The record is a 189-nucleotide sequence from Caldibacillus thermoamylovorans, which matches "Lysine riboswitch aptamer" in Rfam. The organism belongs to Caldibacillus, within Bacteria.
RNA sequence: UGGUGAGGUAGAGGCGCGGUAUUUAACAGUCUUUAGUGGAACUCGAGAUAGUGAUGAAACUAAAGAGAAGGAAAUAUCGCCGAAGCUUGCAAUAUGAUCUCGCUAUUGCUUGCUGGGCUUACAGUGAAUAACUGUAAGACUGUCUCAGGUAGAAUGGUCCCGGUUUGCCUGAGUUGUGCUAUCUCCAAA
Numbered sequence: 001u002g003g004u005g006a007g008g009u010a011g012a013g014g015c016g017c018g019g020u021a022u023u024u025a026a027c028a029g030u031c032u033u034u035a036g037u038g039g040a041a042c043u044c045g046a047g048a049u050a051g052u053g054a055u056g057a058a059a060c061u062a063a064a065g066a067g068a069a070g071g072a073a074a075u076a077u078c079g080c081c082g083a084a085g086c087u088u089g090c091a092a093u094a095u096g097a098u099c100u101c102g103c104u105a106u107u108g109c110u111u112g113c114u115g116g117g118c119u120u121a122c123a124g125u126g127a128a129u130a131a132c133u134g135u136a137a138g139a140c141u142g143u144c145u146c147a148g149g150u151a152g153a154a155u156g157g158u159c160c161c162g163g164u165u166u167g168c169c170u171g172a173g174u175u176g177u178g179c180u181a182u183c184u185c186c187a188a189a
Stems, first nucleotide, its partner, number of pairs: 006184006016080009031065007084114003089109006115141002118138008144173010